[Rfam]
RNA sequence: AUUAUUCAUUUGCCGAGUUUCAUGUUUGAAAACGGGGGAACCAUUUUGGGUGAAUUAUUCUUAUACAUAGGAAAUAUAGGGAACCUUCUACCGAACCCUUAGCUAACUCCGUAGGCAUCGAAGGGAGAACAU
Numbered sequence: 001a002u003u004a005u006u007c008a009u010u011u012g013c014c015g016a017g018u019u020u021c022a023u024g025u026u027u028g029a030a031a032a033c034g035g036g037g038g039a040a041c042c043a044u045u046u047u048g049g050g051u052g053a054a055u056u057a058u059u060c061u062u063a064u065a066c067a068u069a070g071g072a073a074a075u076a077u078a079g080g081g082a083a084c085c086u087u088c089u090a091c092c093g094a095a096c097c098c099u100u101a102g103c104u105a106a107c108u109c110c111g112u113a114g115g116c117a118u119c120g121a122a123g124g125g126a127g128a129a130c131a132u
Stems, first nucleotide, its partner, number of pairs: 011117004018031003032112006048098003056076004079092002082089001

Record summary:
c-di-AMP riboswitch aptamer (ydaO/yuaA leader): a 132-nucleotide sequence from Paenibacillus xylanivorans. Taxonomically the source falls in Paenibacillus (Bacteria, Bacillati, Bacillota, Caryophanales).